[Rfam]
RNA: Glycine riboswitch aptamer
Organism: Sphingorhabdus sp. SMR4y
RNA sequence: UGAGAUAUUGCGGGAGAGCGUUUUGCUGUCCCACCGGACAGAAGAGCCGCCGAAGGAGCAACCGCCCCGGAAACUCUCAGGCCCCUGGACCGCAAUAUUCUC
Numbered sequence: 001u002g003a004g005a006u007a008u009u010g011c012g013g014g015a016g017a018g019c020g021u022u023u024u025g026c027u028g029u030c031c032c033a034c035c036g037g038a039c040a041g042a043a044g045a046g047c048c049g050c051c052g053a054a055g056g057a058g059c060a061a062c063c064g065c066c067c068c069g070g071a072a073a074c075u076c077u078c079a080g081g082c083c084c085c086u087g088g089a090c091c092g093c094a095a096u097a098u099u100c101u102c
Stems, first nucleotide, its partner, number of pairs: 006097008020047004049082003052078002056076003062070002